RNA: Plastid-psbA-4 3UTR RNA
Organism: Halophytum ameghinoi
Nucleotides: 063
Base pairs, nucleotide, nucleotide: 007059008058009057010056011055012054013053014052015051016050017049018048022043024041025040026039027038028037
Number, partner (000 for none) and nucleotide at each position: 001000g002000a003000a004000a005000g006000u007059a008058a009057a010056g011055g012054g013053g014052c015051a016050a017049u018048a019000c020000c021000u022043g023000u024041u025040u026039c027038u028037u029000a030000a031000u032000a033000g034000a035000c036000c037028a038027a039026g040025a041024a042000a043022u044000u045000g046000g047000u048018u049017a050016u051015u052014g053013c054012u055011c056010c057009u058008u059007u060000a061000c062000u063000a